Shown here is a 91-nucleotide sequence, a member of the family "Rhodo-rpoB RNA".

RNA sequence: GGUUCGGGAGCUAAAGUCGGGAACUUUGGCAAGAAUAGAACCUAAAGCGUGUUUCGUUGGCUUUAAACGUCGAUGCCCGACGACAGUUUAA
Number, nucleotide and partner (000 for none) at each position: 001g042002g041003u040004u039005c038006g000007g000008g000009a000010g030011c029012u028013a027014a026015a025016g024017u000018c000019g000020g000021g000022a000023a000024c016025u015026u014027u013028g012029g011030c010031a000032a000033g000034a000035a000036u000037a000038g005039a004040a003041c002042c001043u000044a000045a000046a000047g000048c000049g000050u000051g000052u000053u000054u000055c000056g000057u000058u000059g000060g000061c000062u000063u091064u090065a089066a088067a087068c000069g084070u083071c082072g081073a000074u000075g000076c000077c000078c000079g000080a000081c072082g071083a070084c069085a000086g000087u067088u066089u065090a064091a063